About this RNA:
The record is a 112-nucleotide RNA sequence from Aquisphaera giovannonii, which matches "SAM riboswitch aptamer (S box leader)" in Rfam.
[Rfam]
RNA sequence: AUCUUAUCCAGAGUGGCUGAGGGACGGGCCCUGUGACGCCACAGCAACCGGUUCACCCAUGGUGAAUGCUGGUGCUAACUCCUGCCCCGCGCGGCGAGGCCGAGAUCGAGGU
Dot-bracket structure: ((((((((....(((((...(((.[[[[)))......)))))((((.((.(((((.......)))))...))))))...(]]]]((.(((...))).))...)))).)))))
NCBI's taxonomy places the organism under Bacteria, Planctomycetia, Isosphaerales, Isosphaeraceae, Aquisphaera.